[Rfam]
Description
A member of the RNA family "pan motif" from Effusibacillus dendaii, 116 nucleotides long. NCBI's taxonomy places the organism under Bacteria, Bacillota, Bacilli, Alicyclobacillaceae, Effusibacillus. The family's RNA type in Rfam is cis-regulatory element. The match comes from Rfam's covariance-model search (38 bits).
RNA sequence: GAGGCGGUAUCCAAGCGUCGAAUGUGCGAUGGAACUGUACUCCGUAUACAGAAUUUUCGCAAUGUCAAACUGUACGUUAAUUCUGCUCUGAGCCGCCAAUGGACCGAGACAGAGGA
Number, nucleotide and partner (000 for none) at each position: 001g042002a041003g040004g038005c037006g036007g035008u034009a000010u033011c032012c031013a030014a000015g000016c000017g000018u000019c000020g000021a000022a000023u000024g000025u000026g000027c000028g000029a000030u013031g012032g011033a010034a008035c007036u006037g005038u004039a000040c003041u002042c001043c000044g000045u000046a000047u000048a000049c000050a000051g000052a000053a000054u000055u000056u000057u000058c000059g000060c000061a000062a000063u000064g000065u000066c000067a000068a000069a000070c000071u000072g000073u000074a000075c000076g000077u000078u000079a000080a000081u000082u000083c112084u111085g110086c108087u107088c106089u000090g104091a000092g000093c102094c101095g000096c000097c000098a000099a000100u000101g094102g093103a000104c090105c000106g088107a087108g086109a000110c085111a084112g083113a000114g000115g000116a000